c-di-GMP-I riboswitch aptamer: an 85-nucleotide RNA from Jeotgalibacillus alimentarius.
The match comes from Rfam's covariance-model search (66 bits).
Gene Ontology term of the family: cyclic-di-GMP binding.
[Rfam]
RNA sequence: AUCUGAUAAGGGCAAACUUCUCCGAAAGGGAAGGACGCAAAGCCGUGAGCCUGAGUGUUUAUCAUAUGGUUGUCUGGCUGCCGGG
Numbered sequence: 001a002u003c004u005g006a007u008a009a010g011g012g013c014a015a016a017c018u019u020c021u022c023c024g025a026a027a028g029g030g031a032a033g034g035a036c037g038c039a040a041a042g043c044c045g046u047g048a049g050c051c052u053g054a055g056u057g058u059u060u061a062u063c064a065u066a067u068g069g070u071u072g073u074c075u076g077g078c079u080g081c082c083g084g085g
Base pairs, nucleotide, nucleotide: 012038013037017033018032019031020030022029023028041079042078043077044076047074048073049070050069051068056064057063